[Rfam]
RNA sequence: CCCUGGGGUACAUACUUCUUUAUAAUCUCAUAUGAACAAUAGCAACUAUGGAAUGUAAAGAAGUAUGUUCUUCAGUG
Numbered sequence: 001c002c003c004u005g006g007g008g009u010a011c012a013u014a015c016u017u018c019u020u021u022a023u024a025a026u027c028u029c030a031u032a033u034g035a036a037c038a039a040u041a042g043c044a045a046c047u048a049u050g051g052a053a054u055g056u057a058a059a060g061a062a063g064u065a066u067g068u069u070c071u072u073c074a075g076u077g
Stems, first nucleotide, its partner, number of pairs: 007071002010068015028051005

The family of this 77-nucleotide RNA sequence from Gouania willdenowi is "mir-1 microRNA precursor family". This family represents the microRNA (miRNA) mir-1 family. miRNAs are transcribed as ~70nt precursors (modelled here) and subsequently processed by the Dicer enzyme to give a ~22nt product. In this case the mature sequence comes from the 3' arm of the precursor. The extents of the hairpin precursors are not generally known and are estimated based on hairpin prediction. The products are thought to have regulatory roles through complementarity to mRNA. The involvement of Dicer in miRNA processing suggests a relationship with the phenomenon of RNA interference. miRNAs are numbered based on the sequence of the mature RNA. This family also contains the mir-206 from human, which appears to be related to mir-1. A search with the family's covariance model found it, with a score of 65 bits. Rfam 15.1 lists 4,474 matches to the family in 965 species.